A member of the RNA family "SAM riboswitch aptamer (S box leader)" from Lentibacillus amyloliquefaciens, 115 nucleotides long.
NCBI's taxonomy places the organism under Bacteria, Bacillota, Bacilli, Bacillaceae, Lentibacillus.
It scores 83 bits against the family's covariance model.

[Rfam]
RNA sequence: AACUUAUCCAGAGUGGCUGAGGGAUCUGGCCCUGUGAAGCCCGGCAACCUGCAGACGUAAUUGUAAGGUGCCAACUCCAGCAAAUCGCGGUUUCAAGCGUUUUGAAAGAUAAGGU
Dot-bracket structure: (.((((((....(.(((...(((..[[[[)))......))))((((.((((((........)))).))))))...(]]]]((((.(((........))).))))..))))))).)